Overview
This 122-nucleotide RNA sequence from Neorhizobium alkalisoli belongs to the Rfam family "Alphaproteobacterial ar14". Gene Ontology term of the family: biological process involved in symbiotic interaction. Taxonomically the source falls in Neorhizobium (Bacteria, Alphaproteobacteria, Hyphomicrobiales, Rhizobiaceae). The pairing is the family consensus, mapped onto this sequence. On this family, see Robledo et al., Environ Microbiol 2017: "A conserved alpha-proteobacterial small RNA contributes to osmoadaptation and symbiotic efficiency of rhizobia on legume roots". About the family: Smr14C2 was renamed NfeR1 (Nodule Formation Efficiency RNA) highly expressed in salt stress and during the symbiotic interaction on legume roots. Rfam classes the family as a small RNA. The match comes from Rfam's covariance-model search (104 bits).
[Rfam]
RNA sequence: CAUAUUCGGACCACGCACUCCUCCUCCCAGUGUGGUCCGUUGAGACUGGCGACCCUCCUCCUCCCAAUCGCCAGUCACGCACAUGACGCCCGCCGGAUCUCCUCCCCCGGUGGGCGUUAUGC
Numbered sequence: 001c002a003u004a005u006u007c008g009g010a011c012c013a014c015g016c017a018c019u020c021c022u023c024c025u026c027c028c029a030g031u032g033u034g035g036u037c038c039g040u041u042g043a044g045a046c047u048g049g050c051g052a053c054c055c056u057c058c059u060c061c062u063c064c065c066a067a068u069c070g071c072c073a074g075u076c077a078c079g080c081a082c083a084u085g086a087c088g089c090c091c092g093c094c095g096g097a098u099c100u101c102c103u104c105c106c107c108c109g110g111u112g113g114g115c116g117u118u119a120u121g122c
Stems, first nucleotide, its partner, number of pairs: 007039010044076009086117011